[Rfam]
RNA sequence: ACCAUGUUCCGCUGCGACUUUUUCGCAAGAGCAUUGG
Numbered sequence: 001a002c003c004a005u006g007u008u009c010c011g012c013u014g015c016g017a018c019u020u021u022u023u024c025g026c027a028a029g030a031g032c033a034u035u036g037g
Stems, first nucleotide, its partner, number of pairs: 004034006013027005

The record is a 37-nucleotide RNA from Aureibacillus halotolerans, which matches "Ribosomal protein L19 leader" in Rfam. Its family is annotated with regulation of gene expression in the Gene Ontology. On this family, see Zengel and Lindahl, Prog Nucleic Acid Res Mol Biol 1994: "Diverse mechanisms for regulating ribosomal protein synthesis in Escherichia coli". About the family: This family is a putative r-protein leader autoregulatory structure found in B. subtilis and other low-GC Gram-positive bacteria. It is located in the 5' untranslated regions of mRNAs encoding ribosomal protein L19 (rplS).